[Rfam]
Rfam assigns this 72-nucleotide RNA sequence to the family "nadA riboswitch".
On this family, see Huang et al., RNA 2020: "Structure and ligand binding of the ADP-binding domain of the NAD(+) riboswitch".
It is annotated as a small RNA.
The base pairs follow the family's consensus structure, which is taken from published work.
RNA sequence: GCUUUCAACAACCCCGUUCCAACGCGAGCUGACACGAAGCAUUUUUGUCGGCGCGUGAUUGGAGCUGAAAGC
Numbered sequence: 001g002c003u004u005u006c007a008a009c010a011a012c013c014c015c016g017u018u019c020c021a022a023c024g025c026g027a028g029c030u031g032a033c034a035c036g037a038a039g040c041a042u043u044u045u046u047g048u049c050g051g052c053g054c055g056u057g058a059u060u061g062g063a064g065c066u067g068a069a070a071g072c
Stems, first nucleotide, its partner, number of pairs: 001072007016065007026054001028052006